[Rfam]
RNA sequence: CCUGGUCUUGCUUAUAGUAUGACUGGGCCACACGCUUAUUAAUAGCACUCUUAAUUGAGUCAUGAAAUUCAAUCACAACAUUUAGUAAUUAUUAUAUGAAUGUGAAAAAUGAAGUGAUGAUGAUUUAUUUUUAAUUAAUGGGCUAUAUAUU
Numbered sequence: 001c002c003u004g005g006u007c008u009u010g011c012u013u014a015u016a017g018u019a020u021g022a023c024u025g026g027g028c029c030a031c032a033c034g035c036u037u038a039u040u041a042a043u044a045g046c047a048c049u050c051u052u053a054a055u056u057g058a059g060u061c062a063u064g065a066a067a068u069u070c071a072a073u074c075a076c077a078a079c080a081u082u083u084a085g086u087a088a089u090u091a092u093u094a095u096a097u098g099a100a101u102g103u104g105a106a107a108a109a110u111g112a113a114g115u116g117a118u119g120a121u122g123a124u125u126u127a128u129u130u131u132u133a134a135u136u137a138a139u140g141g142g143c144u145a146u147a148u149a150u151u
Stems, first nucleotide, its partner, number of pairs: 001027007009019004034143010072118005079111005088103002
RNA: RT-16 RNA